RNA sequence: UGCCCGGGCUCUGGCUCCGUGUCUUCACUCCCGUGUUUGUCCGAGGAGGGAGGGAGGGACGGGGGCGGUGCUGGGGCAACU
Numbered sequence: 001u002g003c004c005c006g007g008g009c010u011c012u013g014g015c016u017c018c019g020u021g022u023c024u025u026c027a028c029u030c031c032c033g034u035g036u037u038u039g040u041c042c043g044a045g046g047a048g049g050g051a052g053g054g055a056g057g058g059a060c061g062g063g064g065g066c067g068g069u070g071c072u073g074g075g076g077c078a079a080c081u
Stems, first nucleotide, its partner, number of pairs: 002077004007072003011068001013066001015064006022057005028052005
Record summary:
Shown here is an 81-nucleotide RNA sequence from Cricetulus griseus, a member of the family "mir-149 microRNA precursor family". Rfam 15.1 lists 122 matches to the family in 120 species. On this family, see Lagos-Quintana et al., Curr Biol 2002: "Identification of tissue-specific microRNAs from mouse". The organism belongs to Cricetulus, within Eukaryota. The sequence is in the family's curated seed alignment.